A member of the RNA family "SmY spliceosomal RNA" from Oesophagostomum dentatum, 79 nucleotides long.
A search with the family's covariance model found it, with a score of 57 bits.
Rfam classes the family as a spliceosomal small nuclear RNA.
RNA sequence: UGAAACCUUGAUAUGACUACGGGGCCUUUCAUAAGACCCAGUGUCCAAUUUUUGGGAACCCUUGCGAGAGUAAGGGUUA
Numbered sequence: 001u002g003a004a005a006c007c008u009u010g011a012u013a014u015g016a017c018u019a020c021g022g023g024g025c026c027u028u029u030c031a032u033a034a035g036a037c038c039c040a041g042u043g044u045c046c047a048a049u050u051u052u053u054g055g056g057a058a059c060c061c062u063u064g065c066g067a068g069a070g071u072a073a074g075g076g077u078u079a
Stems, first nucleotide, its partner, number of pairs: 022039003026035003057078009
Dot-bracket structure: .....................(((.(((....))).))).................(((((((((....))))))))).